[Rfam]
RNA sequence: AACUUAUCAAGAGUGAUGGAGGGUACGGCCCUAUGAAGUCCAGCAACCAGUAUUAAAUACUAGGUGCUAAAUCCGGCCAAGUAGAUUUUCUAGUUGGAGAGAUAAGGA
Numbered sequence: 001a002a003c004u005u006a007u008c009a010a011g012a013g014u015g016a017u018g019g020a021g022g023g024u025a026c027g028g029c030c031c032u033a034u035g036a037a038g039u040c041c042a043g044c045a046a047c048c049a050g051u052a053u054u055a056a057a058u059a060c061u062a063g064g065u066g067c068u069a070a071a072u073c074c075g076g077c078c079a080a081g082u083a084g085a086u087u088u089u090c091u092a093g094u095u096g097g098a099g100a101g102a103u104a105a106g107g108a
Stems, first nucleotide, its partner, number of pairs: 003106006013041001015040003021031003026075003042068004047064002049061004072100001077097004082092003
Shown here is a 108-nucleotide RNA from endosymbiont 'TC1' of Trimyema compressum, a member of the family "SAM riboswitch aptamer (S box leader)". Taxonomically the source falls in Bacillota (Bacteria, Bacillati).